[Rfam]
RNA: Small nucleolar RNA SNORA40
RNA sequence: UGUGUGUGUGUGUGUGUGUGUAUUAAGCUGUGGACAAGGACUAAAUGGUAGGUGCAAUAAACCUCUUUGCAACCCAGAGCUCACUAUUCAGUAUGAGUUUUGAUACCCAUAAGAAGUAAUAUG
Numbered sequence: 001u002g003u004g005u006g007u008g009u010g011u012g013u014g015u016g017u018g019u020g021u022a023u024u025a026a027g028c029u030g031u032g033g034a035c036a037a038g039g040a041c042u043a044a045a046u047g048g049u050a051g052g053u054g055c056a057a058u059a060a061a062c063c064u065c066u067u068u069g070c071a072a073c074c075c076a077g078a079g080c081u082c083a084c085u086a087u088u089c090a091g092u093a094u095g096a097g098u099u100u101u102g103a104u105a106c107c108c109a110u111a112a113g114a115a116g117u118a119a120u121a122u123g
Base pairs, nucleotide, nucleotide: 001056002055003054004053005052007050008049009048014041015040017038019036020035021034063116066113067112068111069110075102076101077100078099079098080097081096082095083094